A member of the RNA family "FMN riboswitch aptamer (RFN element)" from Syntrophotalea carbinolica, 149 nucleotides long. The family's consensus secondary structure is taken from published work.

RNA sequence: UAAAGUUCUCAGGGCGGGGUGAAAGUCCCCACCGGCGGUGAUGUUGCCAUCGAGCAAACAAGCCCGCGAGCGCCUGCCGUAUAGCAGGGCCAGCAGACCCGGUUGGAAUCCGGGGCCGACGGUUAGAGUCCGGACGAGAGAGAAUGCUU
Numbered sequence: 001u002a003a004a005g006u007u008c009u010c011a012g013g014g015c016g017g018g019g020u021g022a023a024a025g026u027c028c029c030c031a032c033c034g035g036c037g038g039u040g041a042u043g044u045u046g047c048c049a050u051c052g053a054g055c056a057a058a059c060a061a062g063c064c065c066g067c068g069a070g071c072g073c074c075u076g077c078c079g080u081a082u083a084g085c086a087g088g089g090c091c092a093g094c095a096g097a098c099c100c101g102g103u104u105g106g107a108a109u110c111c112g113g114g115g116c117c118g119a120c121g122g123u124u125a126g127a128g129u130c131c132g133g134a135c136g137a138g139a140g141a142g143a144a145u146g147c148u149u
Base pairs, nucleotide, nucleotide: 005145006144007143008142009141010140017029018028019027031129032128033118034117035067036066037065038064062116063115070094071093098114099113100112101111102110120132121131122130
The organism belongs to Syntrophotalea carbinolica, within Bacteria.